About this RNA
int-alpA RNA: a 69-nucleotide sequence. Rfam's curators write: Acidobacteria (1 example), Planctomycetes (1 example), Proteobacteria.
RNA sequence: CAACAAACUAGCUUGACGAAGCGAAAAGCAGACCUGUGAACUGCCUGUUUGUUGUUUUUGUUAUUCACA
Numbered sequence: 001c002a003a004c005a006a007a008c009u010a011g012c013u014u015g016a017c018g019a020a021g022c023g024a025a026a027a028g029c030a031g032a033c034c035u036g037u038g039a040a041c042u043g044c045c046u047g048u049u050u051g052u053u054g055u056u057u058u059u060g061u062u063a064u065u066c067a068c069a
Stems, first nucleotide, its partner, number of pairs: 001054008011022004028044004035069006
It is one of the family's seed sequences. Pairs were carried over by alignment from the consensus structure, which is taken from published work.